[Rfam]
RNA sequence: AGCACUGUAUGGUAUCUGCAGCCAGUUGUUUGAUCAGCUGGUUUGUUCAAAAGUCGGUGCUAGAAAAACUCAACAUAUUGCAUCGUUUGUCUCCAUUCUGCCUGUGUUUGGAGUCCCGGUAUAUUCAUUGAAACAAUC
Dot-bracket structure: .((((((......((.(((((.((((((......))))).).))))....).))))))))....((.(.((........((((....................))))..........))..).)).............
Shown here is a 138-nucleotide RNA from Pleuronectes platessa, a member of the family "Small nucleolar RNA SNORA8".
Rfam describes the family as follows. ACA8 is a member of the H/ACA class of snoRNA that guide the sites of modification of uridines to pseudouridines.
Rfam links the family to the GO terms nucleolus and RNA processing.
By type it is an H/ACA-box small nucleolar RNA.
It scores 50 bits against the family's covariance model.